The family of this 383-nucleotide part of an RNA from Thermanaerovibrio acidaminovorans is "Bacterial large subunit ribosomal RNA". The literature on the family includes a 2002 paper in BMC Bioinformatics by Cannone et al., "The comparative RNA web (CRW) site: an online database of comparative sequence and structure information for ribosomal, intron, and other RNAs". Its family is annotated with structural constituent of ribosome and ribosome in the Gene Ontology. Lineage of the source: Bacteria > Synergistia > Synergistales > Synergistaceae > Thermanaerovibrio acidaminovorans.
[Rfam]
RNA sequence: GUUAGGCAGGUGUAAACCCUGCCCGCCGGAAGCCCAAGGAUUCCUGGGGAAGGUCAGUCCGCCCAGGGUUAGGCGGGACCUAAGCCGAGGCCGAGAGGCGUAGGUGAUGGACAGCCGGUAGACAAUCCGGCCCCGCUGGUGCGCGUUAUUACCGAUGGGGUGACGCAGGAGGCUAUGUGCGCCGGGUGAUGGAAGUCCCGGUCUAAGGAUGUAGGGUGUCAGGUAGGUAAAUCCGCCUGGCGUGAGCCUGAGAUCUGAUGGGGACUGCGGUUAUACGCGGGAAGGCACAGAUGCCAAGCUGCCGAGAAAAGCCUCUAGGGAGUGUUACCAGCGCCCGUACUGUAAACCGACACAGGUGGGCAAGCUGAGAAGGCAAAGGUGAA
Numbered sequence: 001g002u003u004a005g006g007c008a009g010g011u012g013u014a015a016a017c018c019c020u021g022c023c024c025g026c027c028g029g030a031a032g033c034c035c036a037a038g039g040a041u042u043c044c045u046g047g048g049g050a051a052g053g054u055c056a057g058u059c060c061g062c063c064c065a066g067g068g069u070u071a072g073g074c075g076g077g078a079c080c081u082a083a084g085c086c087g088a089g090g091c092c093g094a095g096a097g098g099c100g101u102a103g104g105u106g107a108u109g110g111a112c113a114g115c116c117g118g119u120a121g122a123c124a125a126u127c128c129g130g131c132c133c134c135g136c137u138g139g140u141g142c143g144c145g146u147u148a149u150u151a152c153c154g155a156u157g158g159g160g161u162g163a164c165g166c167a168g169g170a171g172g173c174u175a176u177g178u179g180c181g182c183c184g185g186g187u188g189a190u191g192g193a194a195g196u197c198c199c200g201g202u203c204u205a206a207g208g209a210u211g212u213a214g215g216g217u218g219u220c221a222g223g224u225a226g227g228u229a230a231a232u233c234c235g236c237c238u239g240g241c242g243u244g245a246g247c248c249u250g251a252g253a254u255c256u257g258a259u260g261g262g263g264a265c266u267g268c269g270g271u272u273a274u275a276c277g278c279g280g281g282a283a284g285g286c287a288c289a290g291a292u293g294c295c296a297a298g299c300u301g302c303c304g305a306g307a308a309a310a311g312c313c314u315c316u317a318g319g320g321a322g323u324g325u326u327a328c329c330a331g332c333g334c335c336c337g338u339a340c341u342g343u344a345a346a347c348c349g350a351c352a353c354a355g356g357u358g359g360g361c362a363a364g365c366u367g368a369g370a371a372g373g374c375a376a377a378g379g380u381g382a383a
Stems, first nucleotide, its partner, number of pairs: 005023006024381004032361004038341002043067006052060002074337004079110002084105003088101001090099003114131005134333008143325002152320002157315005165302004171295003176289005181202006203261002207256004214249003218241007226234002265280005347356002364374003